[Rfam]
RNA sequence: AACAUAAUCUCAGAAAUCAAUAUCUCUUAUUGAGAUUUGAACUUCUCCUACAAACCUCGGAUCAUCGCACCGAGGUUUUU
Numbered sequence: 001a002a003c004a005u006a007a008u009c010u011c012a013g014a015a016a017u018c019a020a021u022a023u024c025u026c027u028u029a030u031u032g033a034g035a036u037u038u039g040a041a042c043u044u045c046u047c048c049u050a051c052a053a054a055c056c057u058c059g060g061a062u063c064a065u066c067g068c069a070c071c072g073a074g075g076u077u078u079u080u
Base pairs, nucleotide, nucleotide: 054076055075056074057073058072059071060070
Photosynthesis regulatory RNA1: an 80-nucleotide RNA sequence from Tolypothrix sp. NIES-4075. Lineage of the source: Bacteria > Bacillati > Cyanophyceae > Tolypothrichaceae > Tolypothrix. About the family: Formerly known as Syr1 discovered in Synechocystis sp PCC 6803, is a regulatory factor controlling photosynthetic functions. PsrR1 interacts with the ribosome binding regions of several photosynthesis-related mRNAs. In particular, psaL mRNA is processed by RNase E only in the presence of PsrR1. Pairs were carried over by alignment from the consensus structure, which was predicted with CMfinder. The family has 13 seed sequences and 92 matches in Rfam 15.1.